[Rfam]
RNA sequence: UUAGGUAGUUUCAUGUUGUUGGGCUCUGCGUUUCAAACACAAGAACAUCAAACUACCUGAUUUACUGC
Numbered sequence: 001u002u003a004g005g006u007a008g009u010u011u012c013a014u015g016u017u018g019u020u021g022g023g024c025u026c027u028g029c030g031u032u033u034c035a036a037a038c039a040c041a042a043g044a045a046c047a048u049c050a051a052a053c054u055a056c057c058u059g060a061u062u063u064a065c066u067g068c
Stems, first nucleotide, its partner, number of pairs: 001060011014047004019042003023038001
The record is a 68-nucleotide RNA from Drymodes brunneopygia, which matches "mir-196 microRNA precursor family" in Rfam.